The family of this 129-nucleotide sequence from Melanocharis versteri is "Small nucleolar RNA SNORA17". Its Rfam clan is "SNORA17 clan". The base pairs follow the family's consensus structure, which was predicted with RNAalifold. Rfam describes the family as follows. snoRNA ACA 17 belongs to the H/ACA family of snoRNAs and is predicted to guide pseudouridylation of the 28S rRNA at positions U4659 and U4598. It shares the same host gene together with ACA43. The organism belongs to Melanocharis, within Eukaryota. The family's RNA type in Rfam is H/ACA-box small nucleolar RNA.
RNA sequence: CCUGCCCCAGCUCGUGUUGCAGGCGUGGCUGCAGUGCCGCGUUUGUGUCAUUCGGUGGCAGACAGGAACAGGCGACGUCUUCCCUGGUGCUCCCUGUGAGCUCUCAGGAUUGCUCAACAGCCUGACACU
Numbered sequence: 001c002c003u004g005c006c007c008c009a010g011c012u013c014g015u016g017u018u019g020c021a022g023g024c025g026u027g028g029c030u031g032c033a034g035u036g037c038c039g040c041g042u043u044u045g046u047g048u049c050a051u052u053c054g055g056u057g058g059c060a061g062a063c064a065g066g067a068a069c070a071g072g073c074g075a076c077g078u079c080u081u082c083c084c085u086g087g088u089g090c091u092c093c094c095u096g097u098g099a100g101c102u103c104u105c106a107g108g109a110u111u112g113c114u115c116a117a118c119a120g121c122c123u124g125a126c127a128c129u
Base pairs, nucleotide, nucleotide: 002061003060004059005058006057007055008054010052014048015047019046020045021044022043024041025040026039027038028037029036069124070123071122072121073120082112084108085107087105089101090100091099092098